[Rfam]
RNA sequence: AUCGUUCAACCCUGCAGUGGGUCGGAAGUAAGCUUCAGCUGAAGGAACGCGAU
Number, nucleotide and partner (000 for none) at each position: 001a000002u000003c049004g048005u047006u046007c045008a000009a022010c021011c020012c019013u000014g000015c000016a000017g000018u000019g012020g011021g010022u009023c000024g000025g050026a000027a000028g000029u000030a000031a040032g039033c038034u000035u000036c000037a000038g033039c032040u031041g000042a000043a000044g000045g007046a006047a005048c004049g003050c025051g000052a000053u000
Shown here is a 53-nucleotide RNA sequence, a member of the family "Glutamine riboswitch aptamer (glnA leader)". The family's consensus secondary structure is taken from published work. Its family is annotated with glutamine binding in the Gene Ontology.